[Rfam]
RNA sequence: GCCCUGUGGUUACUGGAGACUGUUUGUUCAGUGCAGUGUUCCAGUUAGAAAAAUGGGCCUAAAACAAUACUCUGACUUAUGCAUGGAGCCUGAUAUUUUAGCAGCCUCCAUAGCCCGGUCAUUGUUACACUU
Number, nucleotide and partner (000 for none) at each position: 001g058002c057003c056004c055005u000006g000007u050008g000009g000010u047011u000012a045013c044014u043015g042016g041017a040018g000019a037020c036021u035022g034023u033024u000025u000026g000027u000028u000029c000030a000031g000032u000033g023034c022035a021036g020037u019038g000039u000040u017041c016042c015043a014044g013045u012046u000047a010048g000049a000050a007051a000052a000053a000054u000055g004056g003057g002058c001059c000060u000061a000062a000063a000064a000065c000066a000067a000068u000069a000070c124071u000072c000073u121074g120075a119076c118077u117078u000079a000080u000081g114082c113083a111084u110085g109086g108087a000088g106089c000090c104091u103092g102093a000094u100095a000096u000097u000098u000099u000100a094101g000102c092103a091104g090105c000106c088107u000108c086109c085110a084111u083112a000113g082114c081115c000116c000117g077118g076119u075120c074121a073122u000123u000124g070125u000126u000127a000128c000129a000130c000131u000132u000
RNA: Small nucleolar RNA SNORA84
Organism: Varanus komodoensis